[Rfam]
RNA sequence: CGGGAUCAAUCGACGUUAGGGAAUUCGGCAAUUUAGCCCCGUAAGUUCGCGAUAAGGGGUACCUGCUCGGGAAACGAGCAGGUCGCAGUGACUUGGAGGCUCGGACUGUCUAGUAACAACACAGGUGACCGCAAAUCCGCAAGGACUCGUACGGUCACUGAAUCCUGCCCAGUGCGGGUAUCUGAACACCUAGUACAAUAGGACGAAGGACCCGUCAACGGCGGGGGUAACUAUGACCCUCUUAAGGUAGCGUAGUACCUUGCCGCUUCAGUAGCGGCUUGCAUGAAUGGAUUAACCAGAGCCUCGCUGUCCCAACGUUGAGCCCGGUGAACCGUACAUUCCAGUGCGGAGUCUGGAGA
Numbered sequence: 001c002g003g004g005a006u007c008a009a010u011c012g013a014c015g016u017u018a019g020g021g022a023a024u025u026c027g028g029c030a031a032u033u034u035a036g037c038c039c040c041g042u043a044a045g046u047u048c049g050c051g052a053u054a055a056g057g058g059g060u061a062c063c064u065g066c067u068c069g070g071g072a073a074a075c076g077a078g079c080a081g082g083u084c085g086c087a088g089u090g091a092c093u094u095g096g097a098g099g100c101u102c103g104g105a106c107u108g109u110c111u112a113g114u115a116a117c118a119a120c121a122c123a124g125g126u127g128a129c130c131g132c133a134a135a136u137c138c139g140c141a142a143g144g145a146c147u148c149g150u151a152c153g154g155u156c157a158c159u160g161a162a163u164c165c166u167g168c169c170c171a172g173u174g175c176g177g178g179u180a181u182c183u184g185a186a187c188a189c190c191u192a193g194u195a196c197a198a199u200a201g202g203a204c205g206a207a208g209g210a211c212c213c214g215u216c217a218a219c220g221g222c223g224g225g226g227g228u229a230a231c232u233a234u235g236a237c238c239c240u241c242u243u244a245a246g247g248u249a250g251c252g253u254a255g256u257a258c259c260u261u262g263c264c265g266c267u268u269c270a271g272u273a274g275c276g277g278c279u280u281g282c283a284u285g286a287a288u289g290g291a292u293u294a295a296c297c298a299g300a301g302c303c304u305c306g307c308u309g310u311c312c313c314a315a316c317g318u319u320g321a322g323c324c325c326g327g328u329g330a331a332c333c334g335u336a337c338a339u340u341c342c343a344g345u346g347c348g349g350a351g352u353c354u355g356g357a358g359a
Stems, first nucleotide, its partner, number of pairs: 001326004010321008019312003036060005045050001061083009084088001096305007103297002107121003124159008132149001136145003162292004167222003172219002174215005181210003189202004223241006242246001262278006340357005
RNA: Archaeal large subunit ribosomal RNA, nucleotides 1720 to 2078
Organism: Halorhabdus utahensis